[Rfam]
RNA sequence: GGUAUUGUUUGCCCCACAAUAAGCCCCGGAAAGUUUGUUGUGUUGAAUAGAACAAUGA
Numbered sequence: 001g002g003u004a005u006u007g008u009u010u011g012c013c014c015c016a017c018a019a020u021a022a023g024c025c026c027c028g029g030a031a032a033g034u035u036u037g038u039u040g041u042g043u044u045g046a047a048u049a050g051a052a053c054a055a056u057g058a
Stems, first nucleotide, its partner, number of pairs: 006054005015042009
About this RNA: Shown here is a 58-nucleotide RNA sequence from Listeria booriae, a member of the family "Ribosomal protein L13 leader". Rfam's curators write: This family is a putative r-protein leader autoregulatory structure found in B. subtilis and other low-GC Gram-positive bacteria. On this family, see Zengel and Lindahl, Prog Nucleic Acid Res Mol Biol 1994: "Diverse mechanisms for regulating ribosomal protein synthesis in Escherichia coli". By type it is a cis-regulatory leader. Pairs were carried over by alignment from the consensus structure, which was predicted with CMfinder. Taxonomically the source falls in Listeria (Bacteria, Bacillota, Caryophanales, Listeriaceae).